[Rfam]
Source information:
The family of this 84-nucleotide sequence from Streptomyces glaucescens is "Streptomyces RNA 6106". About the family: Identified by deep sequencing of transcriptome at the end of exponential growth phase. Appears smaller on northern blot than sequencing transcript. This indicates processing step. A reference for the family is Vockenhuber et al. (2011), "Deep sequencing-based identification of small non-coding RNAs in Streptomyces coelicolor", RNA Biol. It is annotated as a small RNA.

RNA sequence: ACGUCGCCCGUGCGGCGCUCGUGGCCUCAGCGGGCCGAAAGCGGCGGGGGUGGUGCCGUGUCGGCGCGGCACCACCCCCGCUGA
Numbered sequence: 001a002c003g004u005c006g007c008c009c010g011u012g013c014g015g016c017g018c019u020c021g022u023g024g025c026c027u028c029a030g031c032g033g034g035c036c037g038a039a040a041g042c043g044g045c046g047g048g049g050g051u052g053g054u055g056c057c058g059u060g061u062c063g064g065c066g067c068g069g070c071a072c073c074a075c076c077c078c079c080g081c082u083g084a
Stems, first nucleotide, its partner, number of pairs: 002017006020041001022039001024036001025034003044081013058067003